[Rfam]
This 100-nucleotide sequence from Nocardia speluncae belongs to the Rfam family "Glycine riboswitch aptamer". Lineage of the source: Bacteria > Actinomycetota > Actinomycetes > Mycobacteriales > Nocardia. It scores 64 bits against the family's covariance model.
RNA sequence: CGUAGCCGUGCGGGAGAGCCCCGGAUCCGCUGAGGAUCCGGGCGCCGAAGGAGCAGCACCUCCCCGUCAAUCUCUCAGGCACCAGGACCGUGCGGGAACC
Numbered sequence: 001c002g003u004a005g006c007c008g009u010g011c012g013g014g015a016g017a018g019c020c021c022c023g024g025a026u027c028c029g030c031u032g033a034g035g036a037u038c039c040g041g042g043c044g045c046c047g048a049a050g051g052a053g054c055a056g057c058a059c060c061u062c063c064c065c066g067u068c069a070a071u072c073u074c075u076c077a078g079g080c081a082c083c084a085g086g087a088c089c090g091u092g093c094g095g096g097a098a099c100c
Stems, first nucleotide, its partner, number of pairs: 006095008020042007044080003047076002051074003058067002